Notes: Rfam assigns this 80-nucleotide RNA from Alligator mississippiensis to the family "Mammalian CPEB3 ribozyme". The base pairs follow the family's consensus structure, which is taken from published work. A reference for the family is Salehi-Ashtiani et al. (2006), "A genomewide search for ribozymes reveals an HDV-like sequence in the human CPEB3 gene", Science. Rfam describes the family as follows. The mammalian CPEB3 ribozyme is a self cleaving RNA located in the second intron of the CPEB3 gene which belongs to a family of genes regulating messenger RNA polyadenylation. NCBI's taxonomy places the organism under Eukaryota, Eumetazoa, Deuterostomia, Vertebrata, Alligator.
[Rfam]
RNA sequence: AGAGUUCACAAGUUUGAGGCCAUAACAGAAGCACUCAUGGAGUGGCCCUGUCAGAUUCCAACAAAUCUAUGAAUUCUGCU
Numbered sequence: 001a002g003a004g005u006u007c008a009c010a011a012g013u014u015u016g017a018g019g020c021c022a023u024a025a026c027a028g029a030a031g032c033a034c035u036c037a038u039g040g041a042g043u044g045g046c047c048c049u050g051u052c053a054g055a056u057u058c059c060a061a062c063a064a065a066u067c068u069a070u071g072a073a074u075u076c077u078g079c080u
Stems, first nucleotide, its partner, number of pairs: 016048001018047004024080001026078005031043002053068005